[Rfam]
RNA sequence: GCCACCGGAAAAAUCCGGUGGCACCGACACCGGUACCGGCACCGGCACCGGGUUGCCGGUAUCCGGCUUCACCGGUGCCGGUGUCGG
Numbered sequence: 001g002c003c004a005c006c007g008g009a010a011a012a013a014u015c016c017g018g019u020g021g022c023a024c025c026g027a028c029a030c031c032g033g034u035a036c037c038g039g040c041a042c043c044g045g046c047a048c049c050g051g052g053u054u055g056c057c058g059g060u061a062u063c064c065g066g067c068u069u070c071a072c073c074g075g076u077g078c079c080g081g082u083g084u085c086g087g
Base pairs, nucleotide, nucleotide: 001022002021003020004019005018006017007016008015009014024087025086026085028083029082030081031080032079033078034077035076036075037074038073039072
Dot-bracket structure: (((((((((....))))))))).(((.((((((((((((................................)))))))))))).)))